[Rfam]
RNA sequence: UCAACAUGUUAUUUGACCUCUUGGUCCCUUAACACAUACCUCGCCAUUCCUUCCGAAAGGAGGGAGUGUCGAGAUGAUAGCGCGGCUUUUAAGGAUGUAUUUUGUCCGCGCGUCAAUGCCCUCCUUUCUCUUUGUCUCGAUAGGCGAAAAAGUGGAGAGGAAACAAAAACAAGUCCAAGUG
Numbered sequence: 001u002c003a004a005c006a007u008g009u010u011a012u013u014u015g016a017c018c019u020c021u022u023g024g025u026c027c028c029u030u031a032a033c034a035c036a037u038a039c040c041u042c043g044c045c046a047u048u049c050c051u052u053c054c055g056a057a058a059g060g061a062g063g064g065a066g067u068g069u070c071g072a073g074a075u076g077a078u079a080g081c082g083c084g085g086c087u088u089u090u091a092a093g094g095a096u097g098u099a100u101u102u103u104g105u106c107c108g109c110g111c112g113u114c115a116a117u118g119c120c121c122u123c124c125u126u127u128c129u130c131u132u133u134g135u136c137u138c139g140a141u142a143g144g145c146g147a148a149a150a151a152g153u154g155g156a157g158a159g160g161a162a163a164c165a166a167a168a169a170c171a172a173g174u175c176c177a178a179g180u181g
Stems, first nucleotide, its partner, number of pairs: 007034003012031001016025003039076001040073004045068004049063004054059001094175003097170002100168006119160002121157004130152003135149001137147003
This 181-nucleotide part of an RNA from Claviceps pusilla belongs to the Rfam family "Ascomycota telomerase RNA". NCBI's taxonomy places the organism under Eukaryota, saccharomyceta, Pezizomycotina, leotiomyceta, Claviceps. A reference for the family is Qi et al. (2013), "The common ancestral core of vertebrate and fungal telomerase RNAs", Nucleic Acids Res. By type it is a non-coding RNA gene. Its family is annotated with telomere maintenance via telomerase, telomerase activity and telomerase catalytic core complex in the Gene Ontology.